[Rfam]
RNA: T-box leader
Organism: Candidatus Xianfuyuplasma coldseepsis
RNA sequence: GUAAAUACUAGGAACCGGAAGAGUACUGUAUACUGUGGUCUAGAGAAUUCGUGGAUGGUGUAAACGAAUCGAUCAGUUGCAUGAAUGUCGCCGGGGAGUAGCCAAUGUGAACAGAAGUAAGAUUGGCCGUUGAUCGCGUUAGGAUUCCGAGCGCCUGGUAAUCCAGGAAGUAAGGUGGUACCACGGAUACAAUAUUCGUCCUUUGU
Numbered sequence: 001g002u003a004a005a006u007a008c009u010a011g012g013a014a015c016c017g018g019a020a021g022a023g024u025a026c027u028g029u030a031u032a033c034u035g036u037g038g039u040c041u042a043g044a045g046a047a048u049u050c051g052u053g054g055a056u057g058g059u060g061u062a063a064a065c066g067a068a069u070c071g072a073u074c075a076g077u078u079g080c081a082u083g084a085a086u087g088u089c090g091c092c093g094g095g096g097a098g099u100a101g102c103c104a105a106u107g108u109g110a111a112c113a114g115a116a117g118u119a120a121g122a123u124u125g126g127c128c129g130u131u132g133a134u135c136g137c138g139u140u141a142g143g144a145u146u147c148c149g150a151g152c153g154c155c156u157g158g159u160a161a162u163c164c165a166g167g168a169a170g171u172a173a174g175g176u177g178g179u180a181c182c183a184c185g186g187a188u189a190c191a192a193u194a195u196u197c198g199u200c201c202u203u204u205g206u
Stems, first nucleotide, its partner, number of pairs: 007099002015094004027081004036072001038070001047069006102126005108120001128138003154167005172203004183199005